[Rfam]
RNA sequence: AUGGAGACAUGGCAUAGAGGCAGAGAAACACACUUCAAAGACUUUUUCACUUGAAAUAACUUUGCAUCUCAUUGC
Numbered sequence: 001a002u003g004g005a006g007a008c009a010u011g012g013c014a015u016a017g018a019g020g021c022a023g024a025g026a027a028a029c030a031c032a033c034u035u036c037a038a039a040g041a042c043u044u045u046u047u048c049a050c051u052u053g054a055a056a057u058a059a060c061u062u063u064g065c066a067u068c069u070c071a072u073u074g075c
Base pairs, nucleotide, nucleotide: 004070005069006068007067010022011021013019025065027063028062
Dot-bracket structure: ...((((..((.(.....).))..(.((.................................)).).)))).....
Overview
The family of this 75-nucleotide sequence is "ctgf/hcs24 CAESAR". The 3' UTR of human connective tissue growth factor/hypertrophic chondrocyte specific 24 (ctgf/hcs24) mRNA has been shown to repress ctgf gene expression. Reference identified a minimal RNA element, predicted to form a stable secondary structure, which acts as a post-transcriptional cis-acting element of structure-anchored repression (CAESAR), probably through direct interactions with as yet unknown nuclear factors. By type it is a cis-regulatory element. The literature on the family includes a 2000 paper in Oncogene by Kubota et al., "Identification of an RNA element that confers post-transcriptional repression of connective tissue growth factor/hypertrophic chondrocyte specific 24 (ctgf/hcs24) gene: similarities to retroviral RNA-protein interactions".